[Rfam]
RNA: L31-Gammaproteobacteria ribosomal protein leader
RNA sequence: AAUGCGGUGCCCGGCAGAAGAUCGGGUAGCGGCAUUGCCCUGGAGAGGU
Number, nucleotide and partner (000 for none) at each position: 001a036002a035003u034004g033005c032006g000007g030008u029009g000010c000011c025012c024013g023014g022015c020016a000017g000018a000019a000020g015021a000022u014023c013024g012025g011026g000027u000028a000029g008030c007031g000032g005033c004034a003035u002036u001037g000038c000039c000040c000041u000042g000043g000044a000045g000046a000047g000048g000049u000